Archaeal large subunit ribosomal RNA: a 247-nucleotide part of an RNA from Coccomyxa sp. Obi. Rfam links the family to the GO terms structural constituent of ribosome and ribosome. For this family Rfam cites "Crystal structure of the ribosome at 5.5 A resolution" (Yusupov et al., Science, 2001). The family's consensus secondary structure is taken from published work. A search with the family's covariance model found it, with a score of 1197 bits.
[Rfam]
RNA sequence: UGUGUGAAACUGAGAGAAUCAUUCCUUUGUACGAGAGGACCGGGAAUGGUAAACCUCUGGUCUACCAGUUGUUGCGCCAGCAGCAUCGCUGGGUAGCUACGUUUAGAUCGAGUAACUGCUGAAGGCCUAUCAAGCAGGAAAUCGUGUCUCAAAACAAGUUUCUAGACUCGUAGAAGAUCACUACGAAAUAGGCGGAGAGUGGAAACACAGCAAUGUGGGAGCUUAUCCGUACUAAUGGGCUGGAUAA
Numbered sequence: 001u002g003u004g005u006g007a008a009a010c011u012g013a014g015a016g017a018a019u020c021a022u023u024c025c026u027u028u029g030u031a032c033g034a035g036a037g038g039a040c041c042g043g044g045a046a047u048g049g050u051a052a053a054c055c056u057c058u059g060g061u062c063u064a065c066c067a068g069u070u071g072u073u074g075c076g077c078c079a080g081c082a083g084c085a086u087c088g089c090u091g092g093g094u095a096g097c098u099a100c101g102u103u104u105a106g107a108u109c110g111a112g113u114a115a116c117u118g119c120u121g122a123a124g125g126c127c128u129a130u131c132a133a134g135c136a137g138g139a140a141a142u143c144g145u146g147u148c149u150c151a152a153a154a155c156a157a158g159u160u161u162c163u164a165g166a167c168u169c170g171u172a173g174a175a176g177a178u179c180a181c182u183a184c185g186a187a188a189u190a191g192g193c194g195g196a197g198a199g200u201g202g203a204a205a206c207a208c209a210g211c212a213a214u215g216u217g218g219g220a221g222c223u224u225a226u227c228c229g230u231a232c233u234a235a236u237g238g239g240c241u242g243g244a245u246a247a
Stems, first nucleotide, its partner, number of pairs: 006162006014150003019049008050105005058099003065092005070085005109144003116137005167239002169185005189234003192230005197224003206217004